[Rfam]
RNA sequence: GCAGAAUUGUAGCUGCAAGUACAUAUUGUCAUAUAUACACUCUAUAUAUGACAAUAUGUACUUGCAGCUACAAUGGGGU
Numbered sequence: 001g002c003a004g005a006a007u008u009g010u011a012g013c014u015g016c017a018a019g020u021a022c023a024u025a026u027u028g029u030c031a032u033a034u035a036u037a038c039a040c041u042c043u044a045u046a047u048a049u050g051a052c053a054a055u056a057u058g059u060a061c062u063u064g065c066a067g068c069u070a071c072a073a074u075g076g077g078g079u
Stems, first nucleotide, its partner, number of pairs: 001079002006074002010072001011069007020060001022058008

The family of this 79-nucleotide RNA sequence from Sphaeramia orbicularis is "mir-16 microRNA precursor family".
A search with the family's covariance model found it, with a score of 42 bits.
NCBI's taxonomy places the organism under Eukaryota, Teleostomi, Euteleosteomorpha, Apogonidae, Sphaeramia.